[Rfam]
This 105-nucleotide sequence from Bacillus oleivorans belongs to the Rfam family "SAM riboswitch aptamer (S box leader)".
A search with the family's covariance model found it, with a score of 89 bits.
The organism belongs to Bacillus, within Bacteria.

RNA sequence: UACUUAUCAAGAGUGACUGAGGGAUCAGGCCCUAUGACGUCCGGCAACCUCCAUUUGGAACGGUGCCACUUCCUGCAGAAUGUAUCUCAUUCUGAAAGAUAAGUC
Number, nucleotide and partner (000 for none) at each position: 001u000002a104003c103004u102005u101006a100007u099008c098009a000010a000011g000012a000013g042014u000015g041016a040017c039018u000019g000020a000021g032022g031023g030024a000025u000026c075027a074028g073029g072030c023031c022032c021033u000034a000035u000036g000037a000038c000039g017040u016041c015042c013043g067044g066045c065046a064047a000048c063049c062050u059051c058052c057053a000054u000055u000056u000057g052058g051059a050060a000061c000062g049063g048064u046065g045066c044067c043068a000069c000070u000071u097072c029073c028074u027075g026076c094077a093078g092079a091080a090081u089082g000083u000084a000085u000086c000087u000088c000089a081090u080091u079092c078093u077094g076095a000096a000097a071098g008099a007100u006101a005102a004103g003104u002105c000